Nucleotides: 083
Base pairs, nucleotide, nucleotide: 001024002023003022004020005019006018007017008016010015052079053078054077055075056074058072059071061070062069063068
Number, partner (000 for none) and nucleotide at each position: 001024g002023g003022g004020c005019c006018g007017u008016a009000a010015c011000a012000u013000u014000u015010g016008u017007g018006c019005g020004g021000a022003u023002c024001c025000g026000a027000c028000a029000a030000a031000u032000c033000u034000c035000c036000u037000c038000u039000g040000a041000c042000a043000a044000c045000g046000a047000a048000c049000a050000u051000a052079c053078c054077g055075c056074c057000a058072g059071g060000a061070u062069u063068c064000a065000a066000c067000a068063g069062a070061a071059c072058c073000g074056g075055g076000a077054c078053g079052g080000g081000a082000g083000g